[Rfam]
RNA sequence: GUUAGUUCAACAGGAAUUGAACCUACGAAUUUUCCAAUUAUGAGUUGGGCGUUUUAACCAUUCAGCCAUGGAU
Numbered sequence: 001g002u003u004a005g006u007u008c009a010a011c012a013g014g015a016a017u018u019g020a021a022c023c024u025a026c027g028a029a030u031u032u033u034c035c036a037a038u039u040a041u042g043a044g045u046u047g048g049g050c051g052u053u054u055u056a057a058c059c060a061u062u063c064a065g066c067c068a069u070g071g072a073u
Stems, first nucleotide, its partner, number of pairs: 005073004012024003040069003044066006051059001